[Rfam]
Nucleotides: 060
Base pairs, nucleotide, nucleotide: 002058003057004056005055006054007053008052009051010050011049013048014047016045017044018043019042020041021040022039023038024037025036
Number, partner (000 for none) and nucleotide at each position: 001000u002058u003057a004056a005055g006054u007053a008052g009051u010050g011049g012000u013048g014047c015000c016045g017044c018043u019042c020041u021040u022039a023038u024037u025036a026000g027000a028000a029000u030000c031000c032000a033000g034000a035000a036025u037024a038023a039022u040021a041020a042019g043018a044017g045016u046000c047014g048013c049011u050010c051009a052008c053007u054006g055005c056004u057003u058002a059000u060000c